[Rfam]
RNA: Small Cajal body specific RNA 6
Organism: Larimichthys crocea
RNA sequence: GGUCAGUGAUGAUCAGUAAAAGGUCUGAUUACCCACAAUCCCCUCCUGCUGCCCUGCUGGCUCCCAGCAGCCCCUGCUCUGUAUCCCAUCAUGCUCUAGUGGUGCAGUGGUGGUCCCAGGAGCUGCUGACAGACAGGAUGUGACAUCACAGUGAGUCUGUACAGAGAUCCUACAGGCUCUGUGUGAUGUCAUCCAACAGAACCAAUCAGCAUGGAGCGUCAGGCUGAGAAGGAGGAGGAGGGAGCUGAUCUCAAGUUUUCAACCUGAGACC
Numbered sequence: 001g002g003u004c005a006g007u008g009a010u011g012a013u014c015a016g017u018a019a020a021a022g023g024u025c026u027g028a029u030u031a032c033c034c035a036c037a038a039u040c041c042c043c044u045c046c047u048g049c050u051g052c053c054c055u056g057c058u059g060g061c062u063c064c065c066a067g068c069a070g071c072c073c074c075u076g077c078u079c080u081g082u083a084u085c086c087c088a089u090c091a092u093g094c095u096c097u098a099g100u101g102g103u104g105c106a107g108u109g110g111u112g113g114u115c116c117c118a119g120g121a122g123c124u125g126c127u128g129a130c131a132g133a134c135a136g137g138a139u140g141u142g143a144c145a146u147c148a149c150a151g152u153g154a155g156u157c158u159g160u161a162c163a164g165a166g167a168u169c170c171u172a173c174a175g176g177c178u179c180u181g182u183g184u185g186a187u188g189u190c191a192u193c194c195a196a197c198a199g200a201a202c203c204a205a206u207c208a209g210c211a212u213g214g215a216g217c218g219u220c221a222g223g224c225u226g227a228g229a230a231g232g233a234g235g236a237g238g239a240g241g242g243a244g245c246u247g248a249u250c251u252c253a254a255g256u257u258u259u260c261a262a263c264c265u266g267a268g269a270c271c
Stems, first nucleotide, its partner, number of pairs: 001271004038249003043234005049228002061216004065128007086113007094104001136194001140192005153179009